Shown here is a 112-nucleotide sequence from Maledivibacter halophilus, a member of the family "TPP riboswitch aptamer (THI element)". Rfam 15.1 lists 16,130 matches to the family in 8,693 species. The base pairs follow the family's consensus structure, which is taken from published work. Vitamin B(1) in its active form thiamin pyrophosphate (TPP) is an essential coenzyme that is synthesised by coupling of pyrimidine and thiazole moieties in bacteria.
[Rfam]
RNA sequence: UUAAUAACAAUGGGGAGUUAGAUGAAUCUGGCUGAGAGGAAGCUAUAUUGCUUCGACCCGUAUUACCUGAACUGGAUAAUGCCAGCGGAGGGAAAAUAUUGUCUGUUUAUUU
Numbered sequence: 001u002u003a004a005u006a007a008c009a010a011u012g013g014g015g016a017g018u019u020a021g022a023u024g025a026a027u028c029u030g031g032c033u034g035a036g037a038g039g040a041a042g043c044u045a046u047a048u049u050g051c052u053u054c055g056a057c058c059c060g061u062a063u064u065a066c067c068u069g070a071a072c073u074g075g076a077u078a079a080u081g082c083c084a085g086c087g088g089a090g091g092g093a094a095a096a097u098a099u100u101g102u103c104u105g106u107u108u109a110u111u112u
Stems, first nucleotide, its partner, number of pairs: 006100002009097001011060004017032005039054005066091003072085004